[Rfam]
RNA sequence: GAUCUGUGAUGAAAUAUAGCCAAAUCUGAGCACUAGAAGAUCACAUGGUCUUGAUGGUGCAUGAUCUGGAACUUUUCUGGGA
Numbered sequence: 001g002a003u004c005u006g007u008g009a010u011g012a013a014a015u016a017u018a019g020c021c022a023a024a025u026c027u028g029a030g031c032a033c034u035a036g037a038a039g040a041u042c043a044c045a046u047g048g049u050c051u052u053g054a055u056g057g058u059g060c061a062u063g064a065u066c067u068g069g070a071a072c073u074u075u076u077c078u079g080g081g082a
Stems, first nucleotide, its partner, number of pairs: 030060005038051004
Dot-bracket structure: .............................(((((...((((......))))....)))))......................
RNA: Small nucleolar RNA U2-19
Organism: Geotrypetes seraphini